[Rfam]
Bacterial RNase P class A: a 365-nucleotide RNA from Atopobium sp. oral taxon 199. A search with the family's covariance model found it, with a score of 290 bits. Pairs were carried over by alignment from the consensus structure, which is taken from published work.
RNA sequence: AAAGCGGGCCAGACGACCGCGGGGCGGCCAUCCAGUCUUGGAGGGCUGCCAUGAGGAAAGUCCGGGCUCCACGGGCAGGAUGCUGGCUAACGGCCAGGCGGGGUGACCCGACGGAAAGUGCCGCAGAAAAGAAGACUCUCACCUGCGCGCAAGCGUAAAGAGAAAAGCUGAAACGGUAGUGUAAGAGACUACCAGCGCUCUGGCGACAGGGCGGCUUGGUAAACCCCAUCCGGAGCAAACGCAAAUAGGAGCGCUAUGGUGUAGCCCGCACUGCGCUCGGGUUGCGCGCUAGAGGAUGUCGGCAACGGCAUUCGUAGAUAAAUGGUCGUCCACGACAGAACCCGGCUUACAGGCCCGCUUUGCUC
Numbered sequence: 001a002a003a004g005c006g007g008g009c010c011a012g013a014c015g016a017c018c019g020c021g022g023g024g025c026g027g028c029c030a031u032c033c034a035g036u037c038u039u040g041g042a043g044g045g046c047u048g049c050c051a052u053g054a055g056g057a058a059a060g061u062c063c064g065g066g067c068u069c070c071a072c073g074g075g076c077a078g079g080a081u082g083c084u085g086g087c088u089a090a091c092g093g094c095c096a097g098g099c100g101g102g103g104u105g106a107c108c109c110g111a112c113g114g115a116a117a118g119u120g121c122c123g124c125a126g127a128a129a130a131g132a133a134g135a136c137u138c139u140c141a142c143c144u145g146c147g148c149g150c151a152a153g154c155g156u157a158a159a160g161a162g163a164a165a166a167g168c169u170g171a172a173a174c175g176g177u178a179g180u181g182u183a184a185g186a187g188a189c190u191a192c193c194a195g196c197g198c199u200c201u202g203g204c205g206a207c208a209g210g211g212c213g214g215c216u217u218g219g220u221a222a223a224c225c226c227c228a229u230c231c232g233g234a235g236c237a238a239a240c241g242c243a244a245a246u247a248g249g250a251g252c253g254c255u256a257u258g259g260u261g262u263a264g265c266c267c268g269c270a271c272u273g274c275g276c277u278c279g280g281g282u283u284g285c286g287c288g289c290u291a292g293a294g295g296a297u298g299u300c301g302g303c304a305a306c307g308g309c310a311u312u313c314g315u316a317g318a319u320a321a322a323u324g325g326u327c328g329u330c331c332a333c334g335a336c337a338g339a340a341c342c343c344g345g346c347u348u349a350c351a352g353g354c355c356c357g358c359u360u361u362g363c364u365c
Stems, first nucleotide, its partner, number of pairs: 001361010012330007020053002023050006058348003062345005067235004073267004078231005083097005098112001099110004113226002118224002120220003136167002138162003144157005175193006195215001196213007240286003249278006258272005294313008